Record summary: XIST RNA A repeat: a 33-nucleotide sequence from Dipodomys ordii. The match comes from Rfam's covariance-model search (36 bits). On this family, see Duszczyk et al., RNA 2011: "The Xist RNA A-repeat comprises a novel AUCG tetraloop fold and a platform for multimerization".
[Rfam]
RNA sequence: UGGUCCAUCGGGGCCGCGGAUACCUGCUUGCUU
Number, nucleotide and partner (000 for none) at each position: 001u000002g000003g014004u013005c012006c011007a000008u000009c000010g000011g006012g005013g004014c003015c000016g000017c026018g025019g024020a000021u000022a000023c000024c019025u018026g017027c000028u000029u000030g000031c000032u000033u000